The record is a 209-nucleotide RNA from Azotobacter chroococcum, which matches "PhrS" in Rfam. The base pairs follow the family's consensus structure, which was predicted with CMfinder. For this family Rfam cites "The small RNA PhrS stimulates synthesis of the Pseudomonas aeruginosa quinolone signal" (Sonnleitner et al., Mol Microbiol, 2011). The source organism's lineage runs through Bacteria, Gammaproteobacteria, Pseudomonadaceae, Azotobacter and Azotobacter chroococcum. Its family is annotated with quorum sensing in the Gene Ontology.
RNA sequence: AUCGAAGAGGCAACCAGCGAAAAAGGAGCCAACCAUGUUUAUCGAUGAAGUGGUACUGGCUGGAGUUGGGGUGGUGGGAUUGAUGUUCGUUUUCGCUGGCGGAAUCGGUUAUUUCAUCUGGAAGGACUCCCAGAACAAGAAGUAGGAAAAGUUCUUCGGAUCCAGAGCACGCAAGGCACUUUCGGGCGACGUUGUCGCCCUUUUUUUUG
Numbered sequence: 001a002u003c004g005a006a007g008a009g010g011c012a013a014c015c016a017g018c019g020a021a022a023a024a025g026g027a028g029c030c031a032a033c034c035a036u037g038u039u040u041a042u043c044g045a046u047g048a049a050g051u052g053g054u055a056c057u058g059g060c061u062g063g064a065g066u067u068g069g070g071g072u073g074g075u076g077g078g079a080u081u082g083a084u085g086u087u088c089g090u091u092u093u094c095g096c097u098g099g100c101g102g103a104a105u106c107g108g109u110u111a112u113u114u115c116a117u118c119u120g121g122a123a124g125g126a127c128u129c130c131c132a133g134a135a136c137a138a139g140a141a142g143u144a145g146g147a148a149a150a151g152u153u154c155u156u157c158g159g160a161u162c163c164a165g166a167g168c169a170c171g172c173a174a175g176g177c178a179c180u181u182u183c184g185g186g187c188g189a190c191g192u193u194g195u196c197g198c199c200c201u202u203u204u205u206u207u208u209g
Stems, first nucleotide, its partner, number of pairs: 009100001011098001050060002077088004167177002170175001184200007